Shown here is an 88-nucleotide sequence from Salvator merianae, a member of the family "mir-204 microRNA precursor family". Gene Ontology terms of the family: RISC complex and miRNA-mediated post-transcriptional gene silencing.
[Rfam]
RNA sequence: ACGUGACCUGUGGGCUUCCCUUUGUCAUCCUAUGCCUGGACAUCAUCGGGAGGCAGGGAUAGCAAAGGGGUGCUCAGCUGUCGUCUUU
Numbered sequence: 001a002c003g004u005g006a007c008c009u010g011u012g013g014g015c016u017u018c019c020c021u022u023u024g025u026c027a028u029c030c031u032a033u034g035c036c037u038g039g040a041c042a043u044c045a046u047c048g049g050g051a052g053g054c055a056g057g058g059a060u061a062g063c064a065a066a067g068g069g070g071u072g073c074u075c076a077g078c079u080g081u082c083g084u085c086u087u088u
Base pairs, nucleotide, nucleotide: 017070018069019068020067021066022065024063025062028059029058030057031056034054035053036052037051